[Rfam]
Nucleotides: 080
Base pairs, nucleotide, nucleotide: 001078002077004075007072008071009070010069013066014065015064016063017062018061019060020059023056024055025054026053027052028051029050030049031048
Number, partner (000 for none) and nucleotide at each position: 001078u002077a003000g004075g005000c006000g007072g008071a009070g010069g011000u012000u013066g014065g015064u016063g017062c018061c019060a020059u021000g022000u023056g024055u025054g026053g027052u028051a029050c030049u031048g032000a033000g034000a035000u036000a037000a038000u039000a040000g041000c042000u043000g044000c045000c046000c047000a048031c049030a050029g051028u052027a053026c054025c055024a056023c057000c058000c059020a060019u061018g062017g063016c064015g065014c066013c067000u068000u069010c070009c071008u072007c073000c074000c075004c076000g077002u078001a079000c080000a
A member of the RNA family "mir-9186 microRNA precursor family" from Myotis brandtii, 80 nucleotides long.
A search with the family's covariance model found it, with a score of 79 bits.